Bacterial small signal recognition particle RNA: a 97-nucleotide RNA from Candidatus Methylaffinis lahnbergensis. Taxonomically the source falls in Candidatus Methylaffinis (Bacteria, Pseudomonadati, Alphaproteobacteria, Beijerinckiaceae). The base pairs follow the family's consensus structure, which is taken from published work. Gene Ontology terms of the family: SRP-dependent cotranslational protein targeting to membrane, signal sequence recognition and signal recognition particle, plasma membrane targeting. A search with the family's covariance model found it, with a score of 56 bits.

RNA sequence: GGGAGGUUGGCGGUGGACGCACCACUCGCCAACCGGGUCAGGUCCGGAAGGAAGCAGCCCUAACGAGACCGGGCGGGUCUCUGUCCAGCCUCCCACU
Numbered sequence: 001g002g003g004a005g006g007u008u009g010g011c012g013g014u015g016g017a018c019g020c021a022c023c024a025c026u027c028g029c030c031a032a033c034c035g036g037g038u039c040a041g042g043u044c045c046g047g048a049a050g051g052a053a054g055c056a057g058c059c060c061u062a063a064c065g066a067g068a069c070c071g072g073g074c075g076g077g078u079c080u081c082u083g084u085c086c087a088g089c090c091u092c093c094c095a096c097u
Stems, first nucleotide, its partner, number of pairs: 004091005010084004015079001018075003022072002025067004035060004043052003